The record is an 84-nucleotide RNA sequence from Aneurinibacillus sp. XH2, which matches "c-di-GMP-I riboswitch aptamer" in Rfam. About the family: GEMM was predicted in a large-scale screen for bacterial structured RNA regulatory elements. Genes associated with GEMM are involved in a diverse array of functions, including chemotaxis regulation, signal transduction, secretion and chitin. The organism belongs to Aneurinibacillus, within Bacteria. It scores 80 bits against the family's covariance model.
[Rfam]
RNA sequence: AUCUGAAAAAGGCAAAUCUAUCGAAAGGUAGAGACGUAAAGCCAAGGGUCUAAGGUUGCAAAACUAUGACAGCCGGUUGCCAAA
Numbered sequence: 001a002u003c004u005g006a007a008a009a010a011g012g013c014a015a016a017u018c019u020a021u022c023g024a025a026a027g028g029u030a031g032a033g034a035c036g037u038a039a040a041g042c043c044a045a046g047g048g049u050c051u052a053a054g055g056u057u058g059c060a061a062a063a064c065u066a067u068g069a070c071a072g073c074c075g076g077u078u079g080c081c082a083a084a
Base pairs, nucleotide, nucleotide: 012037013036017032018031019030020029021028022027040078041077042076043075046074047073048070049069050068055064056063057062